[Rfam]
RNA sequence: GAGUUAUUAUCAGUGGCCAGCCUAAGUUCUUAUGGAACGGAGGCGAAGCGAAAGCGAGUACGAAAUGUGCGCCCAGUCGCUGGUAAUAGACCCGAAGCGGAGGUGAUCUACUUUUGAGCAGGUUGAAGCUGCAGUAACAUGCAGUGAAGGACCGAACUCGUGGAUGUUGAAAAAUCCUGAGAUGACUUGAGAGUAGGAGCGAAAGACUAAUCAAACCCCGUGAUAGCUGGUU
Numbered sequence: 001g002a003g004u005u006a007u008u009a010u011c012a013g014u015g016g017c018c019a020g021c022c023u024a025a026g027u028u029c030u031u032a033u034g035g036a037a038c039g040g041a042g043g044c045g046a047a048g049c050g051a052a053a054g055c056g057a058g059u060a061c062g063a064a065a066u067g068u069g070c071g072c073c074c075a076g077u078c079g080c081u082g083g084u085a086a087u088a089g090a091c092c093c094g095a096a097g098c099g100g101a102g103g104u105g106a107u108c109u110a111c112u113u114u115u116g117a118g119c120a121g122g123u124u125g126a127a128g129c130u131g132c133a134g135u136a137a138c139a140u141g142c143a144g145u146g147a148a149g150g151a152c153c154g155a156a157c158u159c160g161u162g163g164a165u166g167u168u169g170a171a172a173a174a175u176c177c178u179g180a181g182a183u184g185a186c187u188u189g190a191g192a193g194u195a196g197g198a199g200c201g202a203a204a205g206a207c208u209a210a211u212c213a214a215a216c217c218c219c220g221u222g223a224u225a226g227c228u229g230g231u232u
Base pairs, nucleotide, nucleotide: 005088006087007086008085009084010083011082012081013080014079015078016077017076020044021043022042023041026038027037028036048055049054058070059069060068061067091230092229094227098220099219100218102217103216104215108196109195110194111193112192113191114190115189116188117187118186119184121153122152123151124150128145129144130143131142132141133140157181158180159179162177163176164175165174198208199207
This 232-nucleotide part of an RNA from Pedosphaera parvula belongs to the Rfam family "Bacterial large subunit ribosomal RNA". Taxonomically the source falls in Pedosphaera parvula (Bacteria, Pseudomonadati, Verrucomicrobiota, Pedosphaera).